[Rfam]
Source information
The record is a 277-nucleotide RNA from Geotrypetes seraphini, which matches "Nuclear RNase P" in Rfam. Lineage of the source: Eukaryota > Craniata > Teleostomi > Gymnophiona > Geotrypetes. About the family: Ribonuclease P (RNase P) is a ubiquitous endoribonuclease, found in archaea, bacteria and eukarya as well as chloroplasts and mitochondria. Its best characterised activity is the generation of mature 5'-ends of tRNAs by cleaving the 5'-leader elements of precursor-tRNAs. Cellular RNase Ps are ribonucleoproteins. RNA from bacterial RNase Ps retains its catalytic activity in the absence of the protein subunit, i.e. it is a ribozyme. Rfam classes the family as a ribozyme. The match comes from Rfam's covariance-model search (144 bits).
RNA sequence: GUGGAGGGAAGCUUUGGUGAAGCCUUGGGAAAGGUCUGAGAUAGGAGCCAUCAGUUGCCCUCACAGGACCUCACUUGAUUCAAGUGAAUGAGUUCCAAGUAAUCAUGGAUCCAGUUGAGGACCCUUUGCAGGAGACACAGGCUGAUGAGAUCACAAACGCUGUGGAUGCAGCUCUCUCUGGAUUUGGAAAUGACUCAUGGCUUGGCAUGUUGAGUUCAAUGACAGAGGUGAGAUACAGCUCAAUCUCAUAACCCAAUUCAGACUACUCUCUUUUCAC
Numbered sequence: 001g002u003g004g005a006g007g008g009a010a011g012c013u014u015u016g017g018u019g020a021a022g023c024c025u026u027g028g029g030a031a032a033g034g035u036c037u038g039a040g041a042u043a044g045g046a047g048c049c050a051u052c053a054g055u056u057g058c059c060c061u062c063a064c065a066g067g068a069c070c071u072c073a074c075u076u077g078a079u080u081c082a083a084g085u086g087a088a089u090g091a092g093u094u095c096c097a098a099g100u101a102a103u104c105a106u107g108g109a110u111c112c113a114g115u116u117g118a119g120g121a122c123c124c125u126u127u128g129c130a131g132g133a134g135a136c137a138c139a140g141g142c143u144g145a146u147g148a149g150a151u152c153a154c155a156a157a158c159g160c161u162g163u164g165g166a167u168g169c170a171g172c173u174c175u176c177u178c179u180g181g182a183u184u185u186g187g188a189a190a191u192g193a194c195u196c197a198u199g200g201c202u203u204g205g206c207a208u209g210u211u212g213a214g215u216u217c218a219a220u221g222a223c224a225g226a227g228g229u230g231a232g233a234u235a236c237a238g239c240u241c242a243a244u245c246u247c248a249u250a251a252c253c254c255a256a257u258u259c260a261g262a263c264u265a266c267u268c269u270c271u272u273u274u275c276a277c
Stems, first nucleotide, its partner, number of pairs: 001277004007271003012227005018221001020026002036261005046202004057069001059067002071087006088198007109183006228249007